RNA sequence: UUCUUAUUGGAUAAUUACUGUUUUGUGUCAUAGUCUGAUUGAUCAAUGAAAACAAAAAUGCAUUUCAUCUUUUAUGAAAUUGACAUCCAAUAAGAACGUGACACGCGACAGUCAUCAUCG
Numbered sequence: 001u002u003c004u005u006a007u008u009g010g011a012u013a014a015u016u017a018c019u020g021u022u023u024u025g026u027g028u029c030a031u032a033g034u035c036u037g038a039u040u041g042a043u044c045a046a047u048g049a050a051a052a053c054a055a056a057a058a059u060g061c062a063u064u065u066c067a068u069c070u071u072u073u074a075u076g077a078a079a080u081u082g083a084c085a086u087c088c089a090a091u092a093a094g095a096a097c098g099u100g101a102c103a104c105g106c107g108a109c110a111g112u113c114a115u116c117a118u119c120g
Stems, first nucleotide, its partner, number of pairs: 020109003025104002029100003034095003038091003
Dot-bracket structure: ...................(((..((..(((..(((.(((................................................))).)))..)))..))..)))...........
The record is a 120-nucleotide RNA sequence from Glycine max, which matches "MIR1520 microRNA precursor family" in Rfam. Its Rfam clan is "MIR1520 microRNA precursor clan".